This 98-nucleotide RNA sequence from Afipia carboxidovorans belongs to the Rfam family "Bacterial small signal recognition particle RNA".
It is annotated as a non-coding RNA gene.
Gene Ontology terms of the family: SRP-dependent cotranslational protein targeting to membrane, signal sequence recognition and signal recognition particle, plasma membrane targeting.
The source organism's lineage runs through Bacteria, Pseudomonadota, Nitrobacteraceae, Afipia and Afipia carboxidovorans.
The base pairs follow the family's consensus structure, which is taken from published work.

RNA sequence: GGAGAUUGGCGGUGGACGAGCCACUCGCCAACCGGGUCAGGUCCGGAAGGAAGCAGCCCUAACGAGGUCCGGAUCGGGUCGCUCGUCAGUCUCCUACC
Numbered sequence: 001g002g003a004g005a006u007u008g009g010c011g012g013u014g015g016a017c018g019a020g021c022c023a024c025u026c027g028c029c030a031a032c033c034g035g036g037u038c039a040g041g042u043c044c045g046g047a048a049g050g051a052a053g054c055a056g057c058c059c060u061a062a063c064g065a066g067g068u069c070c071g072g073a074u075c076g077g078g079u080c081g082c083u084c085g086u087c088a089g090u091c092u093c094c095u096a097c098c
Stems, first nucleotide, its partner, number of pairs: 004091005009084001011083004017076003021072002024066004034059004042051003
Dot-bracket structure: ...((((((.((((..(((.((.((((......((((....(((....)))....))))...))))....)).)))...)))))..))))).......